The record is a 108-nucleotide RNA sequence from Citrobacter rodentium, which matches "OxyS RNA" in Rfam. From the family's description: OxyS is a small untranslated RNA which is induced in response to oxidative stress in Escherichia coli. This novel RNA acts as a global regulator to activate or repress the expression of as many as 40 genes, including the fhlA-encoded transcriptional activator and the rpoS-encoded sigma(s) subunit of RNA polymerase. OxyS is bound by the Hfq protein, that increases the OxyS RNA interaction with its target messages. The family's RNA type in Rfam is small RNA. Taxonomically the source falls in Citrobacter rodentium (Bacteria, Pseudomonadati, Pseudomonadota, Enterobacteriaceae).
RNA sequence: GAAACGGAGCGGUACGUUUAACCCUUGAAGCCACCGCACGUUCAGAGAGUUUCUCUCAACCCGAAUAACUAAAGCCAACGUGAACUUUUGCGGACCCCGUGGUCCGCA
Dot-bracket structure: ..((((..((((..(.((........)).)...)))).))))....(.((........)).)...........................(((((((....))))))).